The family of this 69-nucleotide RNA from Eleutherodactylus coqui is "mir-33 microRNA precursor family". Its family is annotated with gene silencing by miRNA and RISC complex in the Gene Ontology. The base pairs follow the family's consensus structure, which was predicted with PFOLD. The literature on the family includes a 2009 paper in BMC Genomics by Li et al., "Direct sequencing and expression analysis of a large number of miRNAs in Aedes aegypti and a multi-species survey of novel mosquito miRNAs". Taxonomically the source falls in Eleutherodactylus (Eukaryota, Gnathostomata, Sarcopterygii, Neobatrachia).
[Rfam]
RNA sequence: CCGUGGUGCAUUGUUGUUGCAUUGCAUGUCUCUCUGGUGUCUGUGCAAUGUUUCUUCAGUGCAGUAUGG
Number, nucleotide and partner (000 for none) at each position: 001c069002c068003g067004u066005g000006g065007u063008g062009c061010a060011u059012u058013g057014u000015u000016g054017u000018u000019g051020c000021a049022u048023u047024g046025c045026a044027u043028g000029u000030c000031u000032c000033u000034c000035u000036g000037g000038u000039g000040u000041c000042u000043g027044u026045g025046c024047a023048a022049u021050g000051u019052u000053u000054c016055u000056u000057c013058a012059g011060u010061g009062c008063a007064g000065u006066a004067u003068g002069g001